Description: This 116-nucleotide sequence from Streptomyces tsukubensis belongs to the Rfam family "Streptomyces-metK RNA".
RNA sequence: GCGAGACGCGUGGUCCGGCGGCGAGAAGUGACCGAUAAACUGGUCGAGGACCACACCGGGCGCAGCUCCCGGUCGUCCACAAAUGAUCAGCCAGCAGCCGCUGCAACCACAGGGAG
Numbered sequence: 001g002c003g004a005g006a007c008g009c010g011u012g013g014u015c016c017g018g019c020g021g022c023g024a025g026a027a028g029u030g031a032c033c034g035a036u037a038a039a040c041u042g043g044u045c046g047a048g049g050a051c052c053a054c055a056c057c058g059g060g061c062g063c064a065g066c067u068c069c070c071g072g073u074c075g076u077c078c079a080c081a082a083a084u085g086a087u088c089a090g091c092c093a094g095c096a097g098c099c100g101c102u103g104c105a106a107c108c109a110c111a112g113g114g115a116g
Stems, first nucleotide, its partner, number of pairs: 048078004053073001056072005092103004
NCBI's taxonomy places the organism under Bacteria, Bacillati, Actinomycetes, Kitasatosporales, Streptomyces. It is annotated as a small RNA.